[Rfam]
RNA sequence: CUAGUAUGUUCGUGCUUAGAGUCUGAAAAAACUCAGAAAUUGCCAGUGUUUUCAUCAGCUUCCUUCUUUGUAGAAGACGAUAAGAUUGGAGUUAAACAAGAACGCUACAUUU
Numbered sequence: 001c002u003a004g005u006a007u008g009u010u011c012g013u014g015c016u017u018a019g020a021g022u023c024u025g026a027a028a029a030a031a032c033u034c035a036g037a038a039a040u041u042g043c044c045a046g047u048g049u050u051u052u053c054a055u056c057a058g059c060u061u062c063c064u065u066c067u068u069u070g071u072a073g074a075a076g077a078c079g080a081u082a083a084g085a086u087u088g089g090a091g092u093u094a095a096a097c098a099a100g101a102a103c104g105c106u107a108c109a110u111u112u
Base pairs, nucleotide, nucleotide: 045106046105047104048103049102050101051100057093058092059091060090061089062088065085066084067083068082
Overview:
The record is a 112-nucleotide RNA from Microthlaspi erraticum, which matches "Small nucleolar RNA snoR97" in Rfam. It scores 83 bits against the family's covariance model.